[Rfam]
RNA sequence: GGGUCCGGAAGCUUUUUGCUGCCGGAGGAUUUAGAUGGUCGGGCCGCCAUCU
Numbered sequence: 001g002g003g004u005c006c007g008g009a010a011g012c013u014u015u016u017u018g019c020u021g022c023c024g025g026a027g028g029a030u031u032u033a034g035a036u037g038g039u040c041g042g043g044c045c046g047c048c049a050u051c052u
Base pairs, nucleotide, nucleotide: 005025006024007023008022010020011019012018033052034051035050036049037048038047039046